[Rfam]
RNA sequence: ACUUAAAAAGAUUUUCUAUCUACGGAUAGUUAGCUCUUUUUCUAGACCUUGUCUACUCAAUUCAACUAAACAGAAAUUUUGUCCUUCCUUCCGGCCGCAUGUUCAUGCUGCUGGAAGCUGGCGUGGAAUUUCAUUAGGUUUGCUUAAGUAGCCAUCGCAAGUGCUGUGCUGUCCUCUAGUUCCUGGUUGGCGUUCCGUCGCCUUCUACAUACUAGACAAACAGCCUUCCUCCGGUUCCGUCUGGGGGUUGUGUGGAUAACUAGUUCCGUCUAGUUUGAAACCAGUAACUGCCGGCUAUGGCUAGCAACCAUGUCACAUUG
Numbered sequence: 001a002c003u004u005a006a007a008a009a010g011a012u013u014u015u016c017u018a019u020c021u022a023c024g025g026a027u028a029g030u031u032a033g034c035u036c037u038u039u040u041u042c043u044a045g046a047c048c049u050u051g052u053c054u055a056c057u058c059a060a061u062u063c064a065a066c067u068a069a070a071c072a073g074a075a076a077u078u079u080u081g082u083c084c085u086u087c088c089u090u091c092c093g094g095c096c097g098c099a100u101g102u103u104c105a106u107g108c109u110g111c112u113g114g115a116a117g118c119u120g121g122c123g124u125g126g127a128a129u130u131u132c133a134u135u136a137g138g139u140u141u142g143c144u145u146a147a148g149u150a151g152c153c154a155u156c157g158c159a160a161g162u163g164c165u166g167u168g169c170u171g172u173c174c175u176c177u178a179g180u181u182c183c184u185g186g187u188u189g190g191c192g193u194u195c196c197g198u199c200g201c202c203u204u205c206u207a208c209a210u211a212c213u214a215g216a217c218a219a220a221c222a223g224c225c226u227u228c229c230u231c232c233g234g235u236u237c238c239g240u241c242u243g244g245g246g247g248u249u250g251u252g253u254g255g256a257u258a259a260c261u262a263g264u265u266c267c268g269u270c271u272a273g274u275u276u277g278a279a280a281c282c283a284g285u286a287a288c289u290g291c292c293g294g295c296u297a298u299g300g301c302u303a304g305c306a307a308c309c310a311u312g313u314c315a316c317a318u319u320g
Base pairs, nucleotide, nucleotide: 005041006040007039008038009037010036012033013032016029017028018027019026020025043055044054045053046052047051073132074131075130076129077128078127079126088117089116090115091114093112094111095110097108098107099106100105140307141306142305148298149297150296151295152294153293157291158290160289161288162286163285164284165283166282175216176215177214178213185206186205189202190201191200192199228247229246230245231244232243233242234241252281253280258275259274260273261272262271263270
This 320-nucleotide sequence from Alphacoronavirus porci belongs to the Rfam family "Alphacoronavirus 5'UTR".
The sequence is in the family's curated seed alignment.
About the family: The first 150 to 200 nucleotides within the 5' UTR of alphacoronaviruses are highly structured and shown to be conserved on the structural level among alphacoronaviruses. The 5' UTR has been predicted to contain 3 conserved stem-loops: SL1, SL2 and SL4. SL1 is important for viral replication, most likely playing a role in the template-switch of viral subgenomic RNA transcription.